[Rfam]
RNA sequence: CGCUAUCAUCAUUAACUUUUAUUUAUUACCGUCAUUCGACUCUGAAUGUCCGUUUACCCCAAUUCUCGCCGAAUGCUCUGCAUUCGGCUUUUUUU
Number, nucleotide and partner (000 for none) at each position: 001c000002g000003c000004u000005a000006u000007c000008a000009u000010c000011a000012u000013u000014a000015a000016c000017u000018u000019u000020u000021a000022u000023u000024u000025a000026u000027u000028a000029c000030c000031g000032u000033c000034a047035u046036u045037c044038g043039a000040c000041u000042c000043u038044g037045a036046a035047u034048g000049u000050c000051c000052g000053u000054u000055u000056a000057c000058c000059c000060c000061a000062a000063u000064u000065c000066u000067c000068g088069c087070c086071g085072a084073a083074u082075g081076c080077u000078c000079u000080g076081c075082a074083u073084u072085c071086g070087g069088c068089u000090u000091u000092u000093u000094u000095u000